The record is a 100-nucleotide RNA sequence from Dendrobium catenatum, which matches "Small nucleolar RNA Z279/snoR105/snoR108" in Rfam. Pairs were carried over by alignment from the consensus structure, which was predicted with PFOLD. The organism belongs to Dendrobium, within Eukaryota. Gene Ontology terms of the family: RNA processing and nucleolus. Clan: snoU13 clan. The literature on the family includes a 2002 paper in Curr Biol by Marker et al., "Experimental RNomics: identification of 140 candidates for small non-messenger RNAs in the plant Arabidopsis thaliana". About the family: This family includes the plant snoRNAs known as Z279, snoR105 and snoR108.
[Rfam]
RNA sequence: GGGAUAUGAGGAGUGGUCAAAACUCGCCAUGCGAGAAGAGUGCCCGCCCCGUUUUUUGUUACGACAGAAGGGGCACUCUAUUAUUUACCUAUCUGAUCCC
Numbered sequence: 001g002g003g004a005u006a007u008g009a010g011g012a013g014u015g016g017u018c019a020a021a022a023c024u025c026g027c028c029a030u031g032c033g034a035g036a037a038g039a040g041u042g043c044c045c046g047c048c049c050c051g052u053u054u055u056u057u058g059u060u061a062c063g064a065c066a067g068a069a070g071g072g073g074c075a076c077u078c079u080a081u082u083a084u085u086u087a088c089c090u091a092u093c094u095g096a097u098c099c100c
Stems, first nucleotide, its partner, number of pairs: 001100004014091003023035005037079008056071002059068001